Notes: Rfam assigns this 70-nucleotide sequence from Muntiacus reevesi to the family "Small nucleolar RNA SNORD121A". A reference for the family is Yang et al. (2006), "snoSeeker: an advanced computational package for screening of guide and orphan snoRNA genes in the human genome", Nucleic Acids Res. Rfam 15.1 lists 881 matches to the family in 444 species. The base pairs follow the family's consensus structure, which was predicted with WAR.
[Rfam]
RNA sequence: AUUAAGAAAACAAUCUCCAAGCACAUAUCUGACAGUUCUGUGUGGAAUUCAACCACUGAGUUUUCUGGAU
Number, nucleotide and partner (000 for none) at each position: 001a070002u069003u068004a000005a066006g065007a000008a063009a062010a061011c060012a000013a000014u000015c000016u000017c000018c000019a000020a000021g000022c000023a000024c000025a000026u000027a000028u000029c000030u000031g000032a000033c000034a000035g000036u000037u000038c000039u000040g000041u000042g000043u000044g000045g000046a000047a000048u000049u000050c000051a000052a000053c000054c000055a000056c000057u000058g000059a000060g011061u010062u009063u008064u000065c006066u005067g000068g003069a002070u001